Potassium channel RNA editing signal: a 114-nucleotide RNA sequence from Polypterus senegalus.
About the family: This family represents a group of sequences related to the human potassium channel Kv1.1 hairpin element which directs the efficient modification of an adenosine to inosine by an adenosine deaminase acting on RNA (ADAR). The ADAR modification causes an isoleucine/valine recoding event which lies in the ion-conducting pore of the potassium channel. It is thought that this editing event targets the process of fast inactivation and allows a more rapid recovery from inactivation at negative potentials.
By type it is a cis-regulatory element.
Pairs were carried over by alignment from the consensus structure, which is taken from published work.
A reference for the family is Bhalla et al. (2004), "Control of human potassium channel inactivation by editing of a small mRNA hairpin", Nat Struct Mol Biol.
RNA sequence: UUUAGGUAUGGUGAUAUGGUGCCCAAGACGAUAGCGGGAAAAAUCUUUGGCUCAAUCUGCUCUCUGAGUGGUGUCUUAGUUAUUGCCUUGCCAGUUCCUGUUAUUGUCUCCAAC
Numbered sequence: 001u002u003u004a005g006g007u008a009u010g011g012u013g014a015u016a017u018g019g020u021g022c023c024c025a026a027g028a029c030g031a032u033a034g035c036g037g038g039a040a041a042a043a044u045c046u047u048u049g050g051c052u053c054a055a056u057c058u059g060c061u062c063u064c065u066g067a068g069u070g071g072u073g074u075c076u077u078a079g080u081u082a083u084u085g086c087c088u089u090g091c092c093a094g095u096u097c098c099u100g101u102u103a104u105u106g107u108c109u110c111c112a113a114c
Stems, first nucleotide, its partner, number of pairs: 002113001005110001008107004013102004018097002021095002037077002040074001049063002